[Rfam]
RNA sequence: CGUCGUCGCACUGCUGGGGGCAGAUGAAGUGGAUGUGCGUGUCGACGCCGCCGGCCGUGACGACGAGCUUCUCGCCCGCGAUGGCCUCCGUCGUGACGCCGACGGUCAUGCCCGGCGUGACGCCGUCCAUGACGUCCGGGUUGCCCGCCUUGCCGACGCCGACGAUGCGGUUGCCCUUGAGGCCGAUGUCGCAUUUCACGACGCCGAGGACCGCGUCGACGACGAGCGCGUUCGUGAUGACCGUGUCGAGGGCGUCCGCGGCCGCGCAGCCCGUCUGCUGGCCCAUGCCCUCGCGGAG
Numbered sequence: 001c002g003u004c005g006u007c008g009c010a011c012u013g014c015u016g017g018g019g020g021c022a023g024a025u026g027a028a029g030u031g032g033a034u035g036u037g038c039g040u041g042u043c044g045a046c047g048c049c050g051c052c053g054g055c056c057g058u059g060a061c062g063a064c065g066a067g068c069u070u071c072u073c074g075c076c077c078g079c080g081a082u083g084g085c086c087u088c089c090g091u092c093g094u095g096a097c098g099c100c101g102a103c104g105g106u107c108a109u110g111c112c113c114g115g116c117g118u119g120a121c122g123c124c125g126u127c128c129a130u131g132a133c134g135u136c137c138g139g140g141u142u143g144c145c146c147g148c149c150u151u152g153c154c155g156a157c158g159c160c161g162a163c164g165a166u167g168c169g170g171u172u173g174c175c176c177u178u179g180a181g182g183c184c185g186a187u188g189u190c191g192c193a194u195u196u197c198a199c200g201a202c203g204c205c206g207a208g209g210a211c212c213g214c215g216u217c218g219a220c221g222a223c224g225a226g227c228g229c230g231u232u233c234g235u236g237a238u239g240a241c242c243g244u245g246u247c248g249a250g251g252g253c254g255u256c257c258g259c260g261g262c263c264g265c266g267c268a269g270c271c272c273g274u275c276u277g278c279u280g281g282c283c284c285a286u287g288c289c290c291u292c293g294c295g296g297a298g
Base pairs, nucleotide, nucleotide: 001298003296007293008292012164013163015161016160017159018076019075022072023071030053031052032051034050035049037048038047039046040045057069078153081150083149084148085147090144091143093141094140095136096135097134100131101130104128105127107125110123111122170282171281172280173279176277179274181272182271183269190230191229192228194226195225196224205218206217233266234265239257243255244254245253
A member of the RNA family "5' ureB small RNA" from Aureococcus anophagefferens, 298 nucleotides long. The base pairs follow the family's consensus structure, which was predicted with mfold. A reference for the family is Wen et al. (2013), "Helicobacter pylori 5'ureB-sRNA, a cis-encoded antisense small RNA, negatively regulates ureAB expression by transcription termination", J Bacteriol. Gene Ontology term of the family: negative regulation of gene expression. Rfam 15.1 lists 4,812 matches to the family in 4,480 species.